[Rfam]
Shown here is a 93-nucleotide RNA from Legionella longbeachae, a member of the family "RAGATH-13 RNA". Its family is annotated with catalytic activity in the Gene Ontology. For this family Rfam cites "New classes of self-cleaving ribozymes revealed by comparative genomics analysis" (Weinberg et al., Nat Chem Biol, 2015). The organism belongs to Legionella longbeachae, within Bacteria. The family's RNA type in Rfam is ribozyme.

RNA sequence: AUUGAUUUGCCCCCAAACAGAGCCUAGUGGCGCAAGCCUGGUAUCACUUUUGAGUGAACCGCUCGAUCAACACUAAACAAAAUCAGGGCAAGU
Numbered sequence: 001a002u003u004g005a006u007u008u009g010c011c012c013c014c015a016a017a018c019a020g021a022g023c024c025u026a027g028u029g030g031c032g033c034a035a036g037c038c039u040g041g042u043a044u045c046a047c048u049u050u051u052g053a054g055u056g057a058a059c060c061g062c063u064c065g066a067u068c069a070a071c072a073c074u075a076a077a078c079a080a081a082a083u084c085a086g087g088g089c090a091a092g093u
Base pairs, nucleotide, nucleotide: 005093006092007091008090009089010088011087012086020064021063022062023061029038030037031036040060041059042058044057045056